A member of the RNA family "DUF805 RNA" from Chitinophaga caeni, 68 nucleotides long. The base pairs follow the family's consensus structure, which is taken from published work. Rfam 15.1 lists 281 matches to the family in 219 species. It is annotated as a cis-regulatory element. A search with the family's covariance model found it, with a score of 78 bits. Lineage of the source: Bacteria > Pseudomonadati > Bacteroidota > Chitinophagaceae > Chitinophaga.
RNA sequence: UAAAAAUGGAGACCAGCGACCAUUAAAAAAAUAGGGCGACACCGAAAAGCCAAACGAGUAGGACAUAA
Numbered sequence: 001u002a003a004a005a006a007u008g009g010a011g012a013c014c015a016g017c018g019a020c021c022a023u024u025a026a027a028a029a030a031a032u033a034g035g036g037c038g039a040c041a042c043c044g045a046a047a048a049g050c051c052a053a054a055c056g057a058g059u060a061g062g063a064c065a066u067a068a
Base pairs, nucleotide, nucleotide: 006023007022008021009020035051036050037049042062043061